[Rfam]
RNA sequence: UUAGUAAAUUGCCUUAUCGCUGUCCUGAUUUGUCGGGAUGGAGGAAAGUCCGAACACCAUAGUGCAAUCAUAGUGGUUAACAGCCAUCCACCGCGAGGUGAGGAAAAGUGCAACAGAAAGAAUGUACAGGUUAUGCUGUAGUGAAAUCAGGUAAACUCUCUGAGGUGCAAUGCCAUGUAAACUAGUGCUUGAGCGUACACGCGCGAUGCUAGAGGGUAGGCAGCUAAAGUUUGCUGGCAACAGUAAACGCAGAUAAAUGAUAAGGGCUUUUCUUUUUUAAAAUUUAGUUUUUUGAAAAGAAAACGCACAGAAUUCGGCUUAUAGAUUUACUUUAACA
Numbered sequence: 001u002u003a004g005u006a007a008a009u010u011g012c013c014u015u016a017u018c019g020c021u022g023u024c025c026u027g028a029u030u031u032g033u034c035g036g037g038a039u040g041g042a043g044g045a046a047a048g049u050c051c052g053a054a055c056a057c058c059a060u061a062g063u064g065c066a067a068u069c070a071u072a073g074u075g076g077u078u079a080a081c082a083g084c085c086a087u088c089c090a091c092c093g094c095g096a097g098g099u100g101a102g103g104a105a106a107a108g109u110g111c112a113a114c115a116g117a118a119a120g121a122a123u124g125u126a127c128a129g130g131u132u133a134u135g136c137u138g139u140a141g142u143g144a145a146a147u148c149a150g151g152u153a154a155a156c157u158c159u160c161u162g163a164g165g166u167g168c169a170a171u172g173c174c175a176u177g178u179a180a181a182c183u184a185g186u187g188c189u190u191g192a193g194c195g196u197a198c199a200c201g202c203g204c205g206a207u208g209c210u211a212g213a214g215g216g217u218a219g220g221c222a223g224c225u226a227a228a229g230u231u232u233g234c235u236g237g238c239a240a241c242a243g244u245a246a247a248c249g250c251a252g253a254u255a256a257a258u259g260a261u262a263a264g265g266g267c268u269u270u271u272c273u274u275u276u277u278u279a280a281a282a283u284u285u286a287g288u289u290u291u292u293u294g295a296a297a298a299g300a301a302a303a304c305g306c307a308c309a310g311a312a313u314u315c316g317g318c319u320u321a322u323a324g325a326u327u328u329a330c331u332u333u334a335a336c337a
Stems, first nucleotide, its partner, number of pairs: 003331008011322001012265007020041009046320003050317005055167004068163003072159001073087005088102001089100004103158002108156002110152002125140005171222004182212005193204004229248008

A member of the RNA family "Bacterial RNase P class A" from Formosa sp. Hel1_31_208, 337 nucleotides long. The source organism's lineage runs through Bacteria, Bacteroidota, Flavobacteriia, Flavobacteriaceae and Formosa. The family's consensus secondary structure is taken from published work. A search with the family's covariance model found it, with a score of 184 bits.